The record is a 98-nucleotide RNA sequence from Paenibacillus sp. yr247, which matches "c-di-GMP-I riboswitch aptamer" in Rfam.
[Rfam]
RNA sequence: GUACGAUAAAGGCAAAACCACUGAAAAGUGGUGACGCAAAGCUAUAGGGGCUAAAUUGGGCAAUCGUUUCAUGUCCAAAAUGUCAGCCAGCUGCCUGU
Numbered sequence: 001g002u003a004c005g006a007u008a009a010a011g012g013c014a015a016a017a018c019c020a021c022u023g024a025a026a027a028g029u030g031g032u033g034a035c036g037c038a039a040a041g042c043u044a045u046a047g048g049g050g051c052u053a054a055a056u057u058g059g060g061c062a063a064u065c066g067u068u069u070c071a072u073g074u075c076c077a078a079a080a081u082g083u084c085a086g087c088c089a090g091c092u093g094c095c096u097g098u
Base pairs, nucleotide, nucleotide: 012037013036017032018031019030020029021028022027040092041091042090043089047088048087049084050083051082056078057077058076059075060074061073062072